[Rfam]
RNA: Glm Y RNA activator of glmS mRNA
Organism: Prodigiosinella confusarubida
RNA sequence: AGCUGCUCAUUCAACUGGUUAUGACUGCAUUGCCAACUGGCAUAUUUUCGCUCAUAACAUCCAGAAUGACGCCAAAAGAAAAGGUGCCUAUCGUCCACCUCAGCGAUAACUGUACGUGCAAGCGAACUUUAUCAAACAUCGGGCGACACGUUGAGUGAGGCACCACCUA
Numbered sequence: 001a002g003c004u005g006c007u008c009a010u011u012c013a014a015c016u017g018g019u020u021a022u023g024a025c026u027g028c029a030u031u032g033c034c035a036a037c038u039g040g041c042a043u044a045u046u047u048u049c050g051c052u053c054a055u056a057a058c059a060u061c062c063a064g065a066a067u068g069a070c071g072c073c074a075a076a077a078g079a080a081a082a083g084g085u086g087c088c089u090a091u092c093g094u095c096c097a098c099c100u101c102a103g104c105g106a107u108a109a110c111u112g113u114a115c116g117u118g119c120a121a122g123c124g125a126a127c128u129u130u131a132u133c134a135a136a137c138a139u140c141g142g143g144c145g146a147c148a149c150g151u152u153g154a155g156u157g158a159g160g161c162a163c164c165a166c167c168u169a
Base pairs, nucleotide, nucleotide: 005072006071007069008068009067010066011065012064019057020056021055022054023053024052027051028050083164084163085162086161087160088159089158092145093144094143095142096141105133106132107131108130109129147157148156149155